Notes:
A member of the RNA family "Alphaproteobacterial sRNA ar7" from Brucella ovis, 142 nucleotides long. The family's RNA type in Rfam is small RNA. The base pairs follow the family's consensus structure. Rfam's curators put it in the seed alignment. Lineage of the source: Bacteria > Pseudomonadati > Pseudomonadota > Alphaproteobacteria > Brucella ovis.

[Rfam]
RNA sequence: CAUCGACACUUCGUCGGUCUCCGGUUUCCGACCCGUCCCCCGUCGGAAACCGGAUGGUAGCGGUAGUCUCAUUCCCCUCUCCGGGCUGCCGCUGUGUAGUGACAUGGCCGCUGUGGUAAUCCCCUCACCACAGCGGCCAAUC
Numbered sequence: 001c002a003u004c005g006a007c008a009c010u011u012c013g014u015c016g017g018u019c020u021c022c023g024g025u026u027u028c029c030g031a032c033c034c035g036u037c038c039c040c041c042g043u044c045g046g047a048a049a050c051c052g053g054a055u056g057g058u059a060g061c062g063g064u065a066g067u068c069u070c071a072u073u074c075c076c077c078u079c080u081c082c083g084g085g086c087u088g089c090c091g092c093u094g095u096g097u098a099g100u101g102a103c104a105u106g107g108c109c110g111c112u113g114u115g116g117u118a119a120u121c122c123c124c125u126c127a128c129c130a131c132a133g134c135g136g137c138c139a140a141u142c
Stems, first nucleotide, its partner, number of pairs: 020054007030044003058094011106138001108136010119125001